[Rfam]
RNA sequence: GAAGUUGCGCAGACGAUCGCUGAAGCGGUCAAGGCAUUGGCCUGCCGCUUUGGAGGAAAGUCCGAACACCACAGGGCAGGGUGCUUCAUAACGUGAAGUCAUGGCGACAUGAAGGAAAGUGCCACAGAAAAGAUACCGCCAAAGGAGCGCUGCUCUUUUGGUAAGGGUGAAAAGGUGCGGUAAGAGCGCACCAGUUCCCCGGGUGACCGGGGAAGCUAGGUAAACCCCACCCGGUGCAAGACCAAAUAGGGGGACGUUUGAGGGCGGCCCGUCCAAGUCCCCGGGUAGGUCGCAUGAGGCGUCGGGCAACCGGCGUCCCGAGAGGAAUGAUCGUCGGCCGGCAAGGGGUAACCCGCGCCGGACACAGAAUUCGGCUUACGCGCAGCUUCAACC
Numbered sequence: 001g002a003a004g005u006u007g008c009g010c011a012g013a014c015g016a017u018c019g020c021u022g023a024a025g026c027g028g029u030c031a032a033g034g035c036a037u038u039g040g041c042c043u044g045c046c047g048c049u050u051u052g053g054a055g056g057a058a059a060g061u062c063c064g065a066a067c068a069c070c071a072c073a074g075g076g077c078a079g080g081g082u083g084c085u086u087c088a089u090a091a092c093g094u095g096a097a098g099u100c101a102u103g104g105c106g107a108c109a110u111g112a113a114g115g116a117a118a119g120u121g122c123c124a125c126a127g128a129a130a131a132g133a134u135a136c137c138g139c140c141a142a143a144g145g146a147g148c149g150c151u152g153c154u155c156u157u158u159u160g161g162u163a164a165g166g167g168u169g170a171a172a173a174g175g176u177g178c179g180g181u182a183a184g185a186g187c188g189c190a191c192c193a194g195u196u197c198c199c200c201g202g203g204u205g206a207c208c209g210g211g212g213a214a215g216c217u218a219g220g221u222a223a224a225c226c227c228c229a230c231c232c233g234g235u236g237c238a239a240g241a242c243c244a245a246a247u248a249g250g251g252g253g254a255c256g257u258u259u260g261a262g263g264g265c266g267g268c269c270c271g272u273c274c275a276a277g278u279c280c281c282c283g284g285g286u287a288g289g290u291c292g293c294a295u296g297a298g299g300c301g302u303c304g305g306g307c308a309a310c311c312g313g314c315g316u317c318c319c320g321a322g323a324g325g326a327a328u329g330a331u332c333g334u335c336g337g338c339c340g341g342c343a344a345g346g347g348g349u350a351a352c353c354c355g356c357g358c359c360g361g362a363c364a365c366a367g368a369a370u371u372c373g374g375c376u377u378a379c380g381c382g383c384a385g386c387u388u389c390a391a392c393c
Stems, first nucleotide, its partner, number of pairs: 001389010012335007020053009058377003062374005067236004074270004079232005084098005099113001100111004114227002119225002121221003136166002138162009174192006194216001195214008240291004250282006262274004298318002300315006

Rfam assigns this 393-nucleotide RNA sequence from Desulfosudis oleivorans to the family "Bacterial RNase P class A". Rfam classes the family as a ribozyme.